[Rfam]
RNA sequence: GACAAAAUGUAUAUAUUGUAAAUAAAUUAAUCCAUGUACAUAGUGUAUAUAAAUAUAGUUGGGACCGUCCACCUCAAGAAGACGACACGCCCAACACGCACAGCUAAACAGUAGUCAAGAUUAUCUACCUCAAGAUAACACUACAUUUAAUGCACACAGCACUUU
Numbered sequence: 001g002a003c004a005a006a007a008u009g010u011a012u013a014u015a016u017u018g019u020a021a022a023u024a025a026a027u028u029a030a031u032c033c034a035u036g037u038a039c040a041u042a043g044u045g046u047a048u049a050u051a052a053a054u055a056u057a058g059u060u061g062g063g064a065c066c067g068u069c070c071a072c073c074u075c076a077a078g079a080a081g082a083c084g085a086c087a088c089g090c091c092c093a094a095c096a097c098g099c100a101c102a103g104c105u106a107a108a109c110a111g112u113a114g115u116c117a118a119g120a121u122u123a124u125c126u127a128c129c130u131c132a133a134g135a136u137a138a139c140a141c142u143a144c145a146u147u148u149a150a151u152g153c154a155c156a157c158a159g160c161a162c163u164u165u
Stems, first nucleotide, its partner, number of pairs: 002046003007041008058151006067142001098141001111139002122137001124135003

Rfam assigns this 165-nucleotide RNA sequence from Orthopestivirus bovis to the family "Pestivirus 3' UTR SLIV and SLII bovine viral diarrhea virus (BVDV-1)". The literature on the family includes a 2023 paper in Emerg Microbes Infect by Forth et al., "African swine fever virus - variants on the rise". NCBI's taxonomy places the organism under Viruses, Orthornavirae, Pestiviridae, Orthopestivirus, Bovine viral diarrhea virus isolates and strains. The pairing is the family consensus, mapped onto this sequence.